[Rfam]
RNA sequence: AUUUUGAUAGUCAAUCGCUAUAUCUGAAAAAUGAUAUAGAGGAAACUCCACGCUUACACAAUCUGCGAUGAUUGUAGUGUUUGUGCUAAUUGAAAAAAUAAGAUUAGGCAUCAUUUUGAUGACGGCGUAACUAACCUAAGGGAAACUAUGGUGAUGUUACUAAUGUGCCACAGAGACGAAUAAAGGGAAACCUGGAAAUGGAACGCGGUAAACCCCACAAGUAAGAAACUCAAAUUUUGGUAGAGGAGUCUAAGAAGAGGAAUUGAACUUAACUUAGGACAGCAAUGUAGAUAGAUGGUUGACACUGGAAACAGUACAGAACGUGGGUUAUGCAA
Numbered sequence: 001a002u003u004u005u006g007a008u009a010g011u012c013a014a015u016c017g018c019u020a021u022a023u024c025u026g027a028a029a030a031a032u033g034a035u036a037u038a039g040a041g042g043a044a045a046c047u048c049c050a051c052g053c054u055u056a057c058a059c060a061a062u063c064u065g066c067g068a069u070g071a072u073u074g075u076a077g078u079g080u081u082u083g084u085g086c087u088a089a090u091u092g093a094a095a096a097a098a099u100a101a102g103a104u105u106a107g108g109c110a111u112c113a114u115u116u117u118g119a120u121g122a123c124g125g126c127g128u129a130a131c132u133a134a135c136c137u138a139a140g141g142g143a144a145a146c147u148a149u150g151g152u153g154a155u156g157u158u159a160c161u162a163a164u165g166u167g168c169c170a171c172a173g174a175g176a177c178g179a180a181u182a183a184a185g186g187g188a189a190a191c192c193u194g195g196a197a198a199u200g201g202a203a204c205g206c207g208g209u210a211a212a213c214c215c216c217a218c219a220a221g222u223a224a225g226a227a228a229c230u231c232a233a234a235u236u237u238u239g240g241u242a243g244a245g246g247a248g249u250c251u252a253a254g255a256a257g258a259g260g261a262a263u264u265g266a267a268c269u270u271a272a273c274u275u276a277g278g279a280c281a282g283c284a285a286u287g288u289a290g291a292u293a294g295a296u297g298g299u300u301g302a303c304a305c306u307g308g309a310a311a312c313a314g315u316a317c318a319g320a321a322c323g324u325g326g327g328u329u330a331u332g333c334a335a
Stems, first nucleotide, its partner, number of pairs: 004335003009331001010303007018039006044329003048326005053225005058075006081220005086107006108123001109121005124215002127160004135151002140147002165213002167209003184193003229245003249278006279288003305314003
A member of the RNA family "Bacterial RNase P class B" from Williamsoniiplasma somnilux, 335 nucleotides long. For this family Rfam cites "Ribonuclease P: unity and diversity in a tRNA processing ribozyme" (Frank and Pace, Annu Rev Biochem, 1998). The family is grouped with related families in Rfam's "RNaseP clan". By type it is a ribozyme. NCBI's taxonomy places the organism under Bacteria, Mycoplasmatota, Mollicutes, Entomoplasmatales, Williamsoniiplasma. Ribonuclease P (RNase P) is a ubiquitous endoribonuclease, found in archaea, bacteria and eukarya as well as chloroplasts and mitochondria. Its best characterised activity is the generation of mature 5'-ends of tRNAs by cleaving the 5'-leader elements of precursor-tRNAs. Cellular RNase Ps are ribonucleoproteins.